Background: The record is a 61-nucleotide RNA from Eptatretus burgeri, which matches "Selenocysteine insertion sequence 1" in Rfam.
[Rfam]
RNA sequence: CUGGCUGUAAUGAUGGGACUGGAUCAAACUCUCAAGGAAAUCCAGUUUCUGAGGUCACCAG
Numbered sequence: 001c002u003g004g005c006u007g008u009a010a011u012g013a014u015g016g017g018a019c020u021g022g023a024u025c026a027a028a029c030u031c032u033c034a035a036g037g038a039a040a041u042c043c044a045g046u047u048u049c050u051g052a053g054g055u056c057a058c059c060a061g
Base pairs, nucleotide, nucleotide: 001061002060003059004058015049016048017047018046019045020044021043022042023041024040030038031037032036

From the family's description: The incorporation of selenocysteine into a protein sequence is directed by an in-frame UGA codon (usually a stop codon) within the coding region of the mRNA. Selenoprotein mRNAs contain a conserved secondary structure in the 3' UTR that is required for the distinction of UGA stop from UGA selenocysteine. The selenocysteine insertion sequence (SECIS) is around 60 nt in length and adopts a hairpin structure which is sufficiently well-defined and conserved to act as a computational screen for selenoprotein genes.
The family's consensus secondary structure is taken from published work.